About this RNA
A member of the RNA family "SAM-I/IV (S-adenosyl methionine) riboswitch aptamer" from Luteitalea sp. TBR-22, 127 nucleotides long. Its Rfam clan is "SAM clan". Lineage of the source: Bacteria > Vicinamibacteria > Vicinamibacterales > Vicinamibacteraceae > Luteitalea.

RNA sequence: CUCGUACAUCCGGAGUGGCGCGGUGACGCGCCCGGCAACCCCGGCAGACACGCCAGGGUGCCCCGAUGCCCGCACGACAGGCAUCGAUGUGGCGACAGCAGGAGCUGUCGCAAGAACGUGUUCCGUG
Numbered sequence: 001c002u003c004g005u006a007c008a009u010c011c012g013g014a015g016u017g018g019c020g021c022g023g024u025g026a027c028g029c030g031c032c033c034g035g036c037a038a039c040c041c042c043g044g045c046a047g048a049c050a051c052g053c054c055a056g057g058g059u060g061c062c063c064c065g066a067u068g069c070c071c072g073c074a075c076g077a078c079a080g081g082c083a084u085c086g087a088u089g090u091g092g093c094g095a096c097a098g099c100a101g102g103a104g105c106u107g108u109c110g111c112a113a114g115a116a117c118g119u120g121u122u123c124c125g126u127g
Stems, first nucleotide, its partner, number of pairs: 006090005015033001017032005034062003039058003043054003047123002092111008